[Rfam]
RNA sequence: UUAGAAUUGAAUAUUAGCACUCGUAUAUCCUCAGUAAUAUGGUCUGAGCGUCUCUACCUGGUUCCCAUCGCAAGAGCCGGACUACGGGGUAAAGUAUAUCGGUG
Numbered sequence: 001u002u003a004g005a006a007u008u009g010a011a012u013a014u015u016a017g018c019a020c021u022c023g024u025a026u027a028u029c030c031u032c033a034g035u036a037a038u039a040u041g042g043u044c045u046g047a048g049c050g051u052c053u054c055u056a057c058c059u060g061g062u063u064c065c066c067a068u069c070g071c072a073a074g075a076g077c078c079g080g081a082c083u084a085c086g087g088g089g090u091a092a093a094g095u096a097u098a099u100c101g102g103u104g
Base pairs, nucleotide, nucleotide: 020088021087022086023085024084025083030048031047032046033045034044058080059079060078061077062076063075064074

Rfam assigns this 104-nucleotide RNA from Lentibacillus halodurans to the family "Purine riboswitch aptamer". The organism belongs to Lentibacillus, within Bacteria. Rfam links the family to the GO term purine nucleobase biosynthetic process. The family's consensus secondary structure is taken from published work. The match comes from Rfam's covariance-model search (65 bits).